[Rfam]
RNA sequence: CCACCAUCCAGAGCGGCUGAGAGACCUGGCUCGACGACGCCGCAGCAACCUCCUUCGGGAAGGUGCUACCGCCAGGACCGAUGGAGG
Numbered sequence: 001c002c003a004c005c006a007u008c009c010a011g012a013g014c015g016g017c018u019g020a021g022a023g024a025c026c027u028g029g030c031u032c033g034a035c036g037a038c039g040c041c042g043c044a045g046c047a048a049c050c051u052c053c054u055u056c057g058g059g060a061a062g063g064u065g066c067u068a069c070c071g072c073c074a075g076g077a078c079c080g081a082u083g084g085a086g087g
Stems, first nucleotide, its partner, number of pairs: 001087002004084005013043005021032003026075004044067004049063002051060003071079001
Dot-bracket structure: ((.(((((....(((((...(((..[[[[)))......)))))((((.(((((....))).))))))...(]]]]...)))))).))